Background:
GcvB RNA: a 189-nucleotide RNA from Sodalis sp. TME1. Rfam describes the family as follows. The gcvB gene encodes a small untranslated RNA involved in expression of the dipeptide and oligopeptide transport systems in Escherichia coli. Rfam classes the family as a non-coding RNA gene.

RNA sequence: CAUUCGCAAGCCGGAACGAAAAGCACUUGGGAAGCUAAUGUUUUCAAAGCGCUUUUGGCGAGUGAUGUGAUAUUGUGUUUGCAGAUUGGGCCGCGAAUGCGGGCCGCUUAACGUUUAAAUCCGUUUUAGGAUACCUUUUUCUGUCUGUCCAUAGAGAAAAGUAGCACCGCGCCUGCGGUGCUUUUUUUU
Number, nucleotide and partner (000 for none) at each position: 001c000002a000003u000004u000005c000006g000007c000008a000009a000010g059011c058012c057013g000014g000015a056016a055017c000018g000019a000020a000021a054022a053023g052024c051025a000026c049027u000028u047029g000030g045031g044032a043033a042034g041035c040036u000037a000038a000039u000040g035041u034042u033043u032044u031045c030046a000047a028048a000049g026050c000051g024052c023053u022054u021055u016056u015057g012058g011059c010060g000061a000062g000063u000064g000065a000066u000067g000068u000069g000070a000071u000072a000073u000074u000075g000076u000077g000078u000079u000080u000081g000082c000083a000084g000085a000086u000087u106088g105089g104090g000091c102092c101093g100094c099095g000096a000097a000098u000099g094100c093101g092102g091103g000104c089105c088106g087107c000108u118109u117110a116111a115112c000113g000114u000115u111116u110117a109118a108119a000120u000121c000122c000123g000124u000125u000126u000127u000128a000129g000130g000131a000132u000133a000134c000135c161136u160137u000138u000139u000140u000141c000142u000143g000144u000145c000146u000147g000148u000149c000150c000151a000152u000153a000154g000155a000156g000157a000158a000159a000160a136161g135162u000163a182164g181165c180166a179167c178168c177169g176170c175171g000172c000173c000174u000175g170176c169177g168178g167179u166180g165181c164182u163183u000184u000185u000186u000187u000188u000189u000
For this family Rfam cites "Temperature-responsive in vitro RNA structurome of Yersinia pseudotuberculosis" (Righetti et al., Proc Natl Acad Sci U S A, 2016). NCBI's taxonomy places the organism under Bacteria, Pseudomonadati, Pseudomonadota, Enterobacterales, Sodalis.